Description
Rfam assigns this 67-nucleotide sequence from Bacillus licheniformis to the family "Bacillaceae-1 RNA".

[Rfam]
RNA sequence: AAUAAGUGAACGCUGGCUAAAUACGCCACAUCGUGUGGCAACGCCUGCAUGACCCACAUCCUGUGGG
Dot-bracket structure: ...........((.(((.......(((((.....)))))...))).))....(((((.....)))))
Notes
The sequence is in the family's curated seed alignment.